[Rfam]
RNA: U2 spliceosomal RNA
Organism: Trichogramma brassicae
RNA sequence: UUAUUUUUAAAACCUAAUUGGCUCUGAUUAAUAUGUAGGAUCUGUUUUUAUUAGAUUGAAAUUGAAUAGGAGAGGUCUAUAAGAUCUCUUAAAGUUCAAACUGAUUUUUGAAUUCGGUCGAGGACCUGGGGCUUGCUCUGGCUCUGCCAUGGGUCUUGCCUGCAUUGCAGGCAACUCAGAUAUAGGCCUGAUAAUC
Numbered sequence: 001u002u003a004u005u006u007u008u009a010a011a012a013c014c015u016a017a018u019u020g021g022c023u024c025u026g027a028u029u030a031a032u033a034u035g036u037a038g039g040a041u042c043u044g045u046u047u048u049u050a051u052u053a054g055a056u057u058g059a060a061a062u063u064g065a066a067u068a069g070g071a072g073a074g075g076u077c078u079a080u081a082a083g084a085u086c087u088c089u090u091a092a093a094g095u096u097c098a099a100a101c102u103g104a105u106u107u108u109u110g111a112a113u114u115c116g117g118u119c120g121a122g123g124a125c126c127u128g129g130g131g132c133u134u135g136c137u138c139u140g141g142c143u144c145u146g147c148c149a150u151g152g153g154u155c156u157u158g159c160c161u162g163c164a165u166u167g168c169a170g171g172c173a174a175c176u177c178a179g180a181u182a183u184a185g186g187c188c189u190g191a192u193a194a195u196c
Stems, first nucleotide, its partner, number of pairs: 007027003011023001013021002049068004054063001072088007116148003120144003128139004151189006158181001160179003